[Rfam]
RNA sequence: CUACAACUUCGGGGCAGGGUGAAAUUCCCUACCGGCGGUGAUAAGGCGAUAGCCUUUCAGUCCGUGACCCGGGUCGAAUGUUUUCGAUUCGGUGGAUCUGGUGAAACUCCAGAGCCGACAGUUAAAGUCUGGAUGGGAGAAGUGAGGA
Numbered sequence: 001c002u003a004c005a006a007c008u009u010c011g012g013g014g015c016a017g018g019g020u021g022a023a024a025u026u027c028c029c030u031a032c033c034g035g036c037g038g039u040g041a042u043a044a045g046g047c048g049a050u051a052g053c054c055u056u057u058c059a060g061u062c063c064g065u066g067a068c069c070c071g072g073g074u075c076g077a078a079u080g081u082u083u084u085c086g087a088u089u090c091g092g093u094g095g096a097u098c099u100g101g102u103g104a105a106a107c108u109c110c111a112g113a114g115c116c117g118a119c120a121g122u123u124a125a126a127g128u129c130u131g132g133a134u135g136g137g138a139g140a141a142g143u144g145a146g147g148a
Stems, first nucleotide, its partner, number of pairs: 006143005017029003031128002033117002035065004060115002069092004097113005119131003
RNA: FMN riboswitch aptamer (RFN element)